[Rfam]
RNA: ZMP/ZTP riboswitch aptamer (pfl RNA motif)
Organism: Plantactinospora sp. KBS50
RNA sequence: CGGCGUACUCGCAACUGGCGCGGCAGGUGGAAUCAACCACCGGGGAGCGACCGGAAGCGUGCGCCGCGCGCCUGGGCGUACGCG
Numbered sequence: 001c002g003g004c005g006u007a008c009u010c011g012c013a014a015c016u017g018g019c020g021c022g023g024c025a026g027g028u029g030g031a032a033u034c035a036a037c038c039a040c041c042g043g044g045g046a047g048c049g050a051c052c053g054g055a056a057g058c059g060u061g062c063g064c065c066g067c068g069c070g071c072c073u074g075g076g077c078g079u080a081c082g083c084g
Stems, first nucleotide, its partner, number of pairs: 009050004015044002017072005027040004061079005